[Rfam]
Nucleotides: 129
Base pairs, nucleotide, nucleotide: 002061003060004059005058006057007056015046016045017044018043019042020041021040023039026037074122075121076120077119078118081115082114083113084112089109090108091107094105095104096103097102
Number, partner (000 for none) and nucleotide at each position: 001000a002061g003060g004059u005058c006057a007056u008000u009000u010000c011000a012000a013000a014000g015046a016045g017044g018043g019042c020041u021040u022000g023039u024000a025000u026037g027000a028000c029000u030000a031000u032000g033000a034000a035000a036000c037026c038000a039023g040021a041020g042019g043018c044017u045016c046015u047000a048000a049000a050000u051000g052000c053000u054000a055000c056007a057006u058005g059004a060003u061002c062000a063000g064000a065000g066000a067000c068000u069000g070000a071000a072000g073000u074122u075121c076120u077119c078118c079000a080000u081115a082114g083113g084112a085000u086000g087000c088000c089109a090108u091107a092000a093000u094105c095104a096103u097102u098000c099000a100000a101000u102097a103096g104095u105094g106000c107091u108090g109089u110000u111000u112084u113083c114082c115081u116000g117000a118078g119077g120076a121075g122074g123000u124000a125000u126000a127000a128000g129000a

Source information
The family of this 129-nucleotide RNA from Microcebus murinus is "Small nucleolar RNA SNORA25". Rfam's curators write: ACA25 is a member of the H/ACA class of snoRNA that guide the sites of modification of uridines to pseudouridines. NCBI's taxonomy places the organism under Eukaryota, Tetrapoda, Mammalia, Theria, Microcebus. A search with the family's covariance model found it, with a score of 105 bits. Rfam 15.1 lists 1,129 matches to the family in 449 species.